[Rfam]
Background: The record is a 115-nucleotide RNA from Medicago truncatula, which matches "MIR2593 microRNA precursor family" in Rfam. The base pairs follow the family's consensus structure, which was predicted with RNAalifold.

RNA sequence: UUACAAGAGAAAUUUGACUUUUUAGAUACAUUAAAUAAUGUAUGUAUCUAAUCAAGAAUCUAAACCAAAUACAUAAAUUAUUUAAUGUAUCUAAAAAGUAAAUUGUCUCUUGUAA
Numbered sequence: 001u002u003a004c005a006a007g008a009g010a011a012a013u014u015u016g017a018c019u020u021u022u023u024a025g026a027u028a029c030a031u032u033a034a035a036u037a038a039u040g041u042a043u044g045u046a047u048c049u050a051a052u053c054a055a056g057a058a059u060c061u062a063a064a065c066c067a068a069a070u071a072c073a074u075a076a077a078u079u080a081u082u083u084a085a086u087g088u089a090u091c092u093a094a095a096a097a098g099u100a101a102a103u104u105g106u107c108u109c110u111u112g113u114a115a
Stems, first nucleotide, its partner, number of pairs: 002114006009106001011104002014101003018098008027089013041075004049067001052064001